[Rfam]
RNA sequence: UGAUGAGAAAUCUCCGGAAUCUCUGUAUUUACUUGAUGAAUACUUUGAACCUUUUUAUCUGAUGACUACAUUUUGUUACU
Numbered sequence: 001u002g003a004u005g006a007g008a009a010a011u012c013u014c015c016g017g018a019a020u021c022u023c024u025g026u027a028u029u030u031a032c033u034u035g036a037u038g039a040a041u042a043c044u045u046u047g048a049a050c051c052u053u054u055u056u057a058u059c060u061g062a063u064g065a066c067u068a069c070a071u072u073u074u075g076u077u078a079c080u
Stems, first nucleotide, its partner, number of pairs: 002080001004078003
About this RNA
Shown here is an 80-nucleotide RNA sequence from Perca flavescens, a member of the family "Small nucleolar RNA MBII-202". The family has 30 seed sequences and 745 matches in Rfam 15.1. By type it is a C/D-box small nucleolar RNA. The source organism's lineage runs through Eukaryota, Osteoglossocephalai, Acanthomorphata, Percidae and Perca. The match comes from Rfam's covariance-model search (59 bits). Gene Ontology terms of the family: RNA processing and nucleolus.